The family of this 132-nucleotide RNA is "gntR-DTE RNA". The family's RNA type in Rfam is small RNA. The match comes from Rfam's covariance-model search (69 bits).
[Rfam]
RNA sequence: CGGGUGAUGUCGUCGGCAGUGGUGCGGCGCGUCGGCGCUGUACGCACGAUCCUGCGGCCCUGGAGAACGCCCCCGGGCGCCACCCGCAGCGAACUGCCCUGCUGAGCGCCAGGCAGAGAGAUGGCGCACCGA
Numbered sequence: 001c002g003g004g005u006g007a008u009g010u011c012g013u014c015g016g017c018a019g020u021g022g023u024g025c026g027g028c029g030c031g032u033c034g035g036c037g038c039u040g041u042a043c044g045c046a047c048g049a050u051c052c053u054g055c056g057g058c059c060c061u062g063g064a065g066a067a068c069g070c071c072c073c074c075g076g077g078c079g080c081c082a083c084c085c086g087c088a089g090c091g092a093a094c095u096g097c098c099c100u101g102c103u104g105a106g107c108g109c110c111a112g113g114c115a116g117a118g119a120g121a122u123g124g125c126g127c128a129c130c131g132a
Stems, first nucleotide, its partner, number of pairs: 015098006050091001052089006061082003068079004